[Rfam]
RNA: serC leader
Organism: Roseovarius sp. 217
RNA sequence: CAGUGGGACACCCCUCCCCAACGAGGGGCGCUUAUCUGAGAGGGUAGCUAAA
Numbered sequence: 001c002a003g004u005g006g007g008a009c010a011c012c013c014c015u016c017c018c019c020a021a022c023g024a025g026g027g028g029c030g031c032u033u034a035u036c037u038g039a040g041a042g043g044g045u046a047g048c049u050a051a052a
Stems, first nucleotide, its partner, number of pairs: 011028006032047006